The record is an 84-nucleotide RNA sequence from Peptococcaceae bacterium CEB3, which matches "c-di-GMP-I riboswitch aptamer" in Rfam. Pairs were carried over by alignment from the consensus structure, which is taken from published work. The organism belongs to Peptococcaceae, within Bacteria. Its family is annotated with cyclic-di-GMP binding in the Gene Ontology. A search with the family's covariance model found it, with a score of 65 bits.

[Rfam]
RNA sequence: CGAAUGAUAAAGUAAACCCGUUGAAAGAUGGGGGCACAAAGCUAUGGGUCUAAGGCUUUAAGCUAUGAUUGCCAGGCCGCCAUC
Numbered sequence: 001c002g003a004a005u006g007a008u009a010a011a012g013u014a015a016a017c018c019c020g021u022u023g024a025a026a027g028a029u030g031g032g033g034g035c036a037c038a039a040a041g042c043u044a045u046g047g048g049u050c051u052a053a054g055g056c057u058u059u060a061a062g063c064u065a066u067g068a069u070u071g072c073c074a075g076g077c078c079g080c081c082a083u084c
Stems, first nucleotide, its partner, number of pairs: 012037002017032006041077003045074003048069003055063003